The record is a 70-nucleotide RNA from Mangrovibacterium diazotrophicum, which matches "DUF805 RNA" in Rfam. The family has 46 seed sequences and 281 matches in Rfam 15.1.
[Rfam]
RNA sequence: AGGUUGUGGAGGCCAGAAACCACCUUUUAAAACGGGGCGAAUUCCGAAAAGCCAAACGAGUAGGAAAACU
Numbered sequence: 001a002g003g004u005u006g007u008g009g010a011g012g013c014c015a016g017a018a019a020c021c022a023c024c025u026u027u028u029a030a031a032a033c034g035g036g037g038c039g040a041a042u043u044c045c046g047a048a049a050a051g052c053c054a055a056a057c058g059a060g061u062a063g064g065a066a067a068a069c070u
Base pairs, nucleotide, nucleotide: 006023007022008021009020036053037052038051043064044063